RNA sequence: GAGUUACUGUCACUGGCAAGGUUAAGUGUUUUGAAACACGCAGCCGGAGCGAAAGCGAGUCUGAAUAGGGCGCACAGUCAGUGGGAGUAGACGCGAAACUUUGUGAUCUACCCUUGGUCAGGAUGAAGUUCCGGUAACACGGGAUGGAGGUCCGAACUAGUAAACGUUGAAAAGUUUUUGGAUGAACUGAGGGUAGGGGUGAAAGGCUAAUCAAACUGAGAAAUAGCUCGUA
Number, nucleotide and partner (000 for none) at each position: 001g000002a000003g000004u000005u089006a088007c087008u086009g000010u084011c083012a082013c081014u080015g079016g078017c077018a000019a000020g045021g044022u043023u042024a000025a000026g039027u038028g037029u000030u000031u000032u000033g000034a000035a000036a000037c028038a027039c026040g000041c000042a023043g022044c021045c020046g000047g000048a000049g056050c055051g000052a000053a000054a000055g050056c049057g000058a000059g071060u070061c069062u068063g000064a000065a000066u000067a000068g062069g061070g060071c059072g000073c000074a000075c000076a000077g017078u016079c015080a014081g013082u012083g011084g010085g000086a008087g007088u006089a005090g000091a000092c230093g229094c000095g227096a000097a000098a000099c220100u219101u218102u000103g216104u215105g000106a000107u000108c196109u195110a194111c193112c192113c191114u190115u189116g188117g187118u186119c184120a000121g153122g152123a151124u150125g000126a000127a000128g145129u144130u143131c142132c141133g140134g000135u000136a000137a000138c000139a000140c133141g132142g131143g130144a129145u128146g000147g000148a000149g000150g124151u123152c122153c121154g000155a000156a000157c181158u180159a179160g000161u000162a177163a176164a175165c174166g000167u000168u000169g000170a000171a000172a000173a000174g165175u164176u163177u162178u000179u159180g158181g157182a000183u000184g119185a000186a118187c117188u116189g115190a114191g113192g112193g111194u110195a109196g108197g000198g208199g207200u206201g000202a000203a000204a000205g000206g200207c199208u198209a000210a000211u000212c000213a000214a000215a104216c103217u000218g101219a100220g099221a000222a000223a000224u000225a000226g000227c095228u000229c093230g092231u000232a000
Notes:
This 232-nucleotide part of an RNA from Ohtaekwangia koreensis belongs to the Rfam family "Bacterial large subunit ribosomal RNA". Gene Ontology terms of the family: structural constituent of ribosome and ribosome. A search with the family's covariance model found it, with a score of 2725 bits. Taxonomically the source falls in Ohtaekwangia (Bacteria, Pseudomonadati, Cytophagia, Cytophagales). The family's consensus secondary structure is taken from published work.